[Rfam]
RNA sequence: AUGACCUUUAAAUUAGUCCCGUGAGGCUAAGAAGGAAGUCUGCGUUAGUGUUUUUCAUACACCAUAACCAGGAGACCAUCUUAGACUACGCGUCUAAGGUGGUCUUUUUCUU
Numbered sequence: 001a002u003g004a005c006c007u008u009u010a011a012a013u014u015a016g017u018c019c020c021g022u023g024a025g026g027c028u029a030a031g032a033a034g035g036a037a038g039u040c041u042g043c044g045u046u047a048g049u050g051u052u053u054u055u056c057a058u059a060c061a062c063c064a065u066a067a068c069c070a071g072g073a074g075a076c077c078a079u080c081u082u083a084g085a086c087u088a089c090g091c092g093u094c095u096a097a098g099g100u101g102g103u104c105u106u107u108u109u110c111u112u
Stems, first nucleotide, its partner, number of pairs: 005035005013030006044068004050062001071107016
Description: The family of this 112-nucleotide RNA from Lactobacillus xujianguonis is "PyrR binding site". It scores 60 bits against the family's covariance model. Rfam's curators write: This family represents the PyrR binding site and terminator structure. This RNA structure is found upstream of a variety of genes involved in pyrimidine biosynthesis and transport.